[Rfam]
RNA sequence: CCGCACUCUAACAUGGAGGCACUUGCUGGACAUGACAAAUAAGUGCUUCCAUGUUUGAGUGAGG
Numbered sequence: 001c002c003g004c005a006c007u008c009u010a011a012c013a014u015g016g017a018g019g020c021a022c023u024u025g026c027u028g029g030a031c032a033u034g035a036c037a038a039a040u041a042a043g044u045g046c047u048u049c050c051a052u053g054u055u056u057g058a059g060u061g062a063g064g
Base pairs, nucleotide, nucleotide: 001064002063004061005060006059007058010055011054012053013052014051015050016049017048018047019046020045021044022043023042024041025040027038
Shown here is a 64-nucleotide RNA sequence from Heterocephalus glaber, a member of the family "mir-302 microRNA precursor family".
The family's consensus secondary structure was predicted with RNAalifold.
It scores 59 bits against the family's covariance model.
NCBI's taxonomy places the organism under Eukaryota, Metazoa, Euteleostomi, Hystricomorpha, Heterocephalus.
Clan: mir-290 clan.
Its family is annotated with miRNA-mediated post-transcriptional gene silencing and RISC complex in the Gene Ontology.